[Rfam]
RNA: Small nucleolar RNA SNORA70
Organism: Erinaceus europaeus
RNA sequence: CUGUAAUUCAGUUGACCAUGCUGUCUUCCACAUGGGGUUCAGUAUACAACAGCUGCAAAUAGCAGCCUCCCUGGUAGUAGUUUGUUUGUAGCCUAUUGCUUGUAUGGUUGCCUUAAGGGCCCUUACAGGCAGCC
Numbered sequence: 001c002u003g004u005a006a007u008u009c010a011g012u013u014g015a016c017c018a019u020g021c022u023g024u025c026u027u028c029c030a031c032a033u034g035g036g037g038u039u040c041a042g043u044a045u046a047c048a049a050c051a052g053c054u055g056c057a058a059a060u061a062g063c064a065g066c067c068u069c070c071c072u073g074g075u076a077g078u079a080g081u082u083u084g085u086u087u088g089u090a091g092c093c094u095a096u097u098g099c100u101u102g103u104a105u106g107g108u109u110g111c112c113u114u115a116a117g118g119g120c121c122c123u124u125a126c127a128g129g130c131a132g133c134c
Stems, first nucleotide, its partner, number of pairs: 002048004015043002021037002024034001073122002089110005